[Rfam]
RNA sequence: GGAGAUGGAUGGGUCCUGGUGGGCUCCACGGCCUUCAAAGCCGCUGUGAGGCGUGCAGAACGUCUCGGGUGUGUUCGAUUCGCACACAUCUCC
Numbered sequence: 001g002g003a004g005a006u007g008g009a010u011g012g013g014u015c016c017u018g019g020u021g022g023g024c025u026c027c028a029c030g031g032c033c034u035u036c037a038a039a040g041c042c043g044c045u046g047u048g049a050g051g052c053g054u055g056c057a058g059a060a061c062g063u064c065u066c067g068g069g070u071g072u073g074u075u076c077g078a079u080u081c082g083c084a085c086a087c088a089u090c091u092c093c
Stems, first nucleotide, its partner, number of pairs: 001093007008085001011026006029043004048065001050063001070084004
Selenocysteine transfer RNA: a 93-nucleotide RNA sequence from Eggerthella lenta. The source organism's lineage runs through Bacteria, Bacillati, Coriobacteriia, Eggerthellaceae and Eggerthella lenta. It scores 68 bits against the family's covariance model. Pairs were carried over by alignment from the consensus structure, which is taken from published work.